RNA sequence: AUUCGUUAUAAGUCCAUUCCCGAUAGGAUUCACUGCCUGUGAAGAUGCCUUGUAACCGCAAUUCGAGUGCAAUUGCACUUAAACCAAAUGGGGGAAUUAUUUUG
Numbered sequence: 001a002u003u004c005g006u007u008a009u010a011a012g013u014c015c016a017u018u019c020c021c022g023a024u025a026g027g028a029u030u031c032a033c034u035g036c037c038u039g040u041g042a043a044g045a046u047g048c049c050u051u052g053u054a055a056c057c058g059c060a061a062u063u064c065g066a067g068u069g070c071a072a073u074u075g076c077a078c079u080u081a082a083a084c085c086a087a088a089u090g091g092g093g094g095a096a097u098u099a100u101u102u103u104g
Base pairs, nucleotide, nucleotide: 017096018095019094020093021092025050026049027048029043030042031041032040033039056091057090